[Rfam]
RNA sequence: GCUCACGAGCGGACGACUGUUCGGGUACCUGGCCCGUCGUCCCGGCAACCGCGCGACCACCGCACGGUGCCCCAGGGGAAGAGCGGGCACGCGGUGCGUGCAAGCGGUGGAC
Numbered sequence: 001g002c003u004c005a006c007g008a009g010c011g012g013a014c015g016a017c018u019g020u021u022c023g024g025g026u027a028c029c030u031g032g033c034c035c036g037u038c039g040u041c042c043c044g045g046c047a048a049c050c051g052c053g054c055g056a057c058c059a060c061c062g063c064a065c066g067g068u069g070c071c072c073c074a075g076g077g078g079a080a081g082a083g084c085g086g087g088c089a090c091g092c093g094g095u096g097c098g099u100g101c102a103a104g105c106g107g108u109g110g111a112c
Stems, first nucleotide, its partner, number of pairs: 001084004009043001011042006024034002044071003049067003053063002087101006
RNA: SAM (S-adenosyl methionine) riboswitch aptamer
Organism: Mycolicibacterium gilvum